RNA sequence: UUUACUUAGGUCUGUGGUUGAAAGUCGAUGCUAGUCGCAGGCGAAACGAUCCACGUAAGGUAGCACUAGACUAAUAGCUACUGAUCAUGGUGCGGCUUAGAGGUGAGUCCUACCUAGAUUAUUACAUAAGGUAAUUUUACUAGAGAGAAGGGGUAGUGAAUUUGAUCUUAAUUUGCGAGACUUCCAGUGGGCGAGUGUGGGGGCAAAGACCAGGUCAGCUAAGUAAA
Numbered sequence: 001u002u003u004a005c006u007u008a009g010g011u012c013u014g015u016g017g018u019u020g021a022a023a024g025u026c027g028a029u030g031c032u033a034g035u036c037g038c039a040g041g042c043g044a045a046a047c048g049a050u051c052c053a054c055g056u057a058a059g060g061u062a063g064c065a066c067u068a069g070a071c072u073a074a075u076a077g078c079u080a081c082u083g084a085u086c087a088u089g090g091u092g093c094g095g096c097u098u099a100g101a102g103g104u105g106a107g108u109c110c111u112a113c114c115u116a117g118a119u120u121a122u123u124a125c126a127u128a129a130g131g132u133a134a135u136u137u138u139a140c141u142a143g144a145g146a147g148a149a150g151g152g153g154u155a156g157u158g159a160a161u162u163u164g165a166u167c168u169u170a171a172u173u174u175g176c177g178a179g180a181c182u183u184c185c186a187g188u189g190g191g192c193g194a195g196u197g198u199g200g201g202g203g204c205a206a207a208g209a210c211c212a213g214g215u216c217a218g219c220u221a222a223g224u225a226a227a
Stems, first nucleotide, its partner, number of pairs: 001227009012218003015212005028198003031041001033097007050090002055085001058082002062079003088205001109191005114143004147184004156176002162171003

This 227-nucleotide RNA from Orenia metallireducens belongs to the Rfam family "raiA RNA".
NCBI's taxonomy places the organism under Bacteria, Bacillota, Clostridia, Halobacteroidaceae, Orenia.